About this RNA: The family of this 106-nucleotide RNA from Isoptericola sp. CG 20/1183 is "TPP riboswitch aptamer (THI element)". Pairs were carried over by alignment from the consensus structure, which is taken from published work. It scores 58 bits against the family's covariance model. Gene Ontology term of the family: thiamine pyrophosphate binding.

[Rfam]
RNA sequence: UGGGCGCAGCACGGGAGCCCUGAGCCAGGGCUGAGAGGGCGAGGUCCGCCGACCGUCGAACCUGAUCUGGGUCAUGCCAGCGAAGGGAGCACGCAUGAGGACGUCG
Numbered sequence: 001u002g003g004g005c006g007c008a009g010c011a012c013g014g015g016a017g018c019c020c021u022g023a024g025c026c027a028g029g030g031c032u033g034a035g036a037g038g039g040c041g042a043g044g045u046c047c048g049c050c051g052a053c054c055g056u057c058g059a060a061c062c063u064g065a066u067c068u069g070g071g072u073c074a075u076g077c078c079a080g081c082g083a084a085g086g087g088a089g090c091a092c093g094c095a096u097g098a099g100g101a102c103g104u105c106g
Stems, first nucleotide, its partner, number of pairs: 006094002009090002011056004017031005038050004061086003067080004